RNA sequence: UUGAAUCUUUUUGCGGUCUGGGCUUGCUGUUCCUUUGUCUGACAAUCAGGAAGCCCUUACCCCAAAAAGUAUUUG
Numbered sequence: 001u002u003g004a005a006u007c008u009u010u011u012u013g014c015g016g017u018c019u020g021g022g023c024u025u026g027c028u029g030u031u032c033c034u035u036u037g038u039c040u041g042a043c044a045a046u047c048a049g050g051a052a053g054c055c056c057u058u059a060c061c062c063c064a065a066a067a068a069g070u071a072u073u074u075g
Stems, first nucleotide, its partner, number of pairs: 007069007015061003020056004025051001027049002
Rfam assigns this 75-nucleotide sequence from Chiloscyllium punctatum to the family "mir-129 microRNA precursor family". For this family Rfam cites "Identification of tissue-specific microRNAs from mouse" (Lagos-Quintana et al., Curr Biol, 2002). A search with the family's covariance model found it, with a score of 91 bits. The organism belongs to Chiloscyllium, within Eukaryota. Gene Ontology terms of the family: RISC complex, gene silencing by miRNA and long-term synaptic potentiation.